[Rfam]
RNA sequence: AGGUAAUGUCUACUGUACCUUUAUCACUGUAGGCACUCGGCCAUGCUGUGGGUUUCGUAGCCUUAGACGCGAGUCGUCAAGGGUGUGGCGUGAGGAAGGGUUCAAUGCCCU
Numbered sequence: 001a002g003g004u005a006a007u008g009u010c011u012a013c014u015g016u017a018c019c020u021u022u023a024u025c026a027c028u029g030u031a032g033g034c035a036c037u038c039g040g041c042c043a044u045g046c047u048g049u050g051g052g053u054u055u056c057g058u059a060g061c062c063u064u065a066g067a068c069g070c071g072a073g074u075c076g077u078c079a080a081g082g083g084u085g086u087g088g089c090g091u092g093a094g095g096a097a098g099g100g101u102u103c104a105a106u107g108c109c110c111u
Stems, first nucleotide, its partner, number of pairs: 001020004007035007036094004040089008050063005066078004097111005

Rfam assigns this 111-nucleotide RNA sequence from Paenibacillus mucilaginosus to the family "epsC RNA".
The match comes from Rfam's covariance-model search (104 bits).
The family's RNA type in Rfam is cis-regulatory element.
NCBI's taxonomy places the organism under Bacteria, Bacillati, Bacillota, Paenibacillus, Paenibacillus mucilaginosus.
The family's consensus secondary structure is taken from published work.